The record is a 105-nucleotide RNA sequence from Pseudomonas sp. UK4, which matches "Pseudomonas rnk leader" in Rfam.
It is one of the family's seed sequences.

[Rfam]
RNA sequence: CGGCCCAUCUUGUUUAUUUGGUGUGCUGUGGUAGUGUCCGGGUACGCCUCAACUCAUCGAGGUCCGUGAGAACCCCGCCGUUUACUGGCGGGGUUUUGCUUUUUU
Dot-bracket structure: .((..(...........(((.((.....)).)))...........)..))..................((((((((((((.....))))))))))))........
Numbered sequence: 001c002g003g004c005c006c007a008u009c010u011u012g013u014u015u016a017u018u019u020g021g022u023g024u025g026c027u028g029u030g031g032u033a034g035u036g037u038c039c040g041g042g043u044a045c046g047c048c049u050c051a052a053c054u055c056a057u058c059g060a061g062g063u064c065c066g067u068g069a070g071a072a073c074c075c076c077g078c079c080g081u082u083u084a085c086u087g088g089c090g091g092g093g094u095u096u097u098g099c100u101u102u103u104u105u
Stems, first nucleotide, its partner, number of pairs: 002050002006046001018034003022030002069097012
Its family is annotated with regulation of gene expression in the Gene Ontology.
On this family, see Naville and Gautheret, Genome Biol 2010: "Premature terminator analysis sheds light on a hidden world of bacterial transcriptional attenuation".